[Rfam]
RNA sequence: GUUUGACACGGACCGACGGUGGCAGGUCUUGCCCCAACUUACGGUCGCGGUGCGAUGAC
Numbered sequence: 001g002u003u004u005g006a007c008a009c010g011g012a013c014c015g016a017c018g019g020u021g022g023c024a025g026g027u028c029u030u031g032c033c034c035c036a037a038c039u040u041a042c043g044g045u046c047g048c049g050g051u052g053c054g055a056u057g058a059c
Base pairs, nucleotide, nucleotide: 007049009047010046011045013043015042018035019034021033022032023031024030025029
Source information:
This 59-nucleotide RNA from Pseudomonas sp. HPB0071 belongs to the Rfam family "Selenocysteine insertion sequence 3". The base pairs follow the family's consensus structure, which was predicted with CMfinder. The literature on the family includes a 1996 paper in RNA by Huttenhofer et al., "Solution structure of mRNA hairpins promoting selenocysteine incorporation in Escherichia coli and their base-specific interaction with special elongation factor SELB". It is annotated as a cis-regulatory element. Taxonomically the source falls in Pseudomonas (Bacteria, Pseudomonadati, Gammaproteobacteria, Pseudomonadales).